[Rfam]
RNA sequence: GCCCGGCUGAACUCUGGUGGUCCAGUGUGCAGACUUCAAAUCUGUAGCUGUCUUGCGACAGAGUGGUUCGAUUCCACCUGACGGGC
Numbered sequence: 001g002c003c004c005g006g007c008u009g010a011a012c013u014c015u016g017g018u019g020g021u022c023c024a025g026u027g028u029g030c031a032g033a034c035u036u037c038a039a040a041u042c043u044g045u046a047g048c049u050g051u052c053u054u055g056c057g058a059c060a061g062a063g064u065g066g067u068u069c070g071a072u073u074c075c076a077c078c079u080g081a082c083g084g085g086c
Base pairs, nucleotide, nucleotide: 001086002085003084004083005082007080009078012027014025015024016023017022028046029045030044031043032042033041048061049060050059051058052057063077064076065075066074
RNA: Selenocysteine transfer RNA